Rfam assigns this 75-nucleotide RNA from Gallaecimonas xiamenensis to the family "c-di-GMP-I-GGC riboswitch aptamer".
The family's consensus secondary structure is taken from published work.
Gene Ontology term of the family: cyclic-di-GMP binding.

[Rfam]
RNA sequence: UCCUGAAAAGGCAAACCCCGGGUAACCGGGGGACGCAAAGCCAAGGGCCCCACCGGGGACGCCUGGCUGCCGAAA
Numbered sequence: 001u002c003c004u005g006a007a008a009a010g011g012c013a014a015a016c017c018c019c020g021g022g023u024a025a026c027c028g029g030g031g032g033a034c035g036c037a038a039a040g041c042c043a044a045g046g047g048c049c050c051c052a053c054c055g056g057g058g059a060c061g062c063c064u065g066g067c068u069g070c071c072g073a074a075a
Stems, first nucleotide, its partner, number of pairs: 001075001003072001011036002016031006034061001039068004044064003048058002